[Rfam]
RNA sequence: UGGAAAUGAUGAAAUAGAGGUAACAGGGUGUUGAGUGUAUGUAUCGUGAAUGUAUGAGUGGAACUUGUUAGUAUUAAUGUUAAGUAAUUCUUCUAAGUUUAGAGUUUUAUAGAUACUUCCUAGAGAGUGUGUGUGCCUGUGUGCGUGCUCAUGGCGGCUAGGGCAAAGGGGGCGCUGAGUGUGGUGGUGCUGAUAUUGGAGUGCAUCUGAGGCUGUUGUAGAAAUCACAGGGGUUAUUGAUUACAACAUUGCCAAUGAUUAUGACCCCAAAACAGCUCACCUAACUAGCCUUACACCCUAAAGUCUCUAACAGGUUCAUCAGACAUGAACCUGUAAUCUGAUCCAA
Numbered sequence: 001u002g003g004a005a006a007u008g009a010u011g012a013a014a015u016a017g018a019g020g021u022a023a024c025a026g027g028g029u030g031u032u033g034a035g036u037g038u039a040u041g042u043a044u045c046g047u048g049a050a051u052g053u054a055u056g057a058g059u060g061g062a063a064c065u066u067g068u069u070a071g072u073a074u075u076a077a078u079g080u081u082a083a084g085u086a087a088u089u090c091u092u093c094u095a096a097g098u099u100u101a102g103a104g105u106u107u108u109a110u111a112g113a114u115a116c117u118u119c120c121u122a123g124a125g126a127g128u129g130u131g132u133g134u135g136c137c138u139g140u141g142u143g144c145g146u147g148c149u150c151a152u153g154g155c156g157g158c159u160a161g162g163g164c165a166a167a168g169g170g171g172g173c174g175c176u177g178a179g180u181g182u183g184g185u186g187g188u189g190c191u192g193a194u195a196u197u198g199g200a201g202u203g204c205a206u207c208u209g210a211g212g213c214u215g216u217u218g219u220a221g222a223a224a225u226c227a228c229a230g231g232g233g234u235u236a237u238u239g240a241u242u243a244c245a246a247c248a249u250u251g252c253c254a255a256u257g258a259u260u261a262u263g264a265c266c267c268c269a270a271a272a273c274a275g276c277u278c279a280c281c282u283a284a285c286u287a288g289c290c291u292u293a294c295a296c297c298c299u300a301a302a303g304u305c306u307c308u309a310a311c312a313g314g315u316u317c318a319u320c321a322g323a324c325a326u327g328a329a330c331c332u333g334u335a336a337u338c339u340g341a342u343c344c345a346a
Stems, first nucleotide, its partner, number of pairs: 001345004214248008223238003227234002
RNA: Small Cajal body-specific RNA 7